Rfam assigns this 31-nucleotide RNA from Meleagris gallopavo to the family "Iron response element II". Rfam classes the family as a cis-regulatory element. The literature on the family includes a 1989 paper in Proc Natl Acad Sci U S A by Koeller et al., "A cytosolic protein binds to structural elements within the iron regulatory region of the transferrin receptor mRNA". Pairs were carried over by alignment from the consensus structure, which is taken from published work. IRE, TFRC, SLC40A1, SDHB, SLC11A2, CDC42BPA, ACO2, ALAS2_H.SAPIENS, CDC14A, EPAS1, ALAS2, qoxD, Hao1, NDUFS1, transferrin, Aconitate. The family has 30 seed sequences and 5,197 matches in Rfam 15.1.

RNA sequence: AAAAUUUCAGAAGCAGUGUCUUCUAAAAUUU
Numbered sequence: 001a002a003a004a005u006u007u008c009a010g011a012a013g014c015a016g017u018g019u020c021u022u023c024u025a026a027a028a029u030u031u
Base pairs, nucleotide, nucleotide: 001031002030003029005027006026007025009024010023011022012021013020014018